[Rfam]
RNA sequence: GGGCACCUUCGGGGGCCUUCACCUGCGCCUUCGGGCGUACAGCAAACGGAAGACAGAAA
Numbered sequence: 001g002g003g004c005a006c007c008u009u010c011g012g013g014g015g016c017c018u019u020c021a022c023c024u025g026c027g028c029c030u031u032c033g034g035g036c037g038u039a040c041a042g043c044a045a046a047c048g049g050a051a052g053a054c055a056g057a058a059a
Stems, first nucleotide, its partner, number of pairs: 001018004006014003027036003
RNA: L2-Alphaproteobacteria ribosomal protein leader
Organism: Pseudoruegeria aquimaris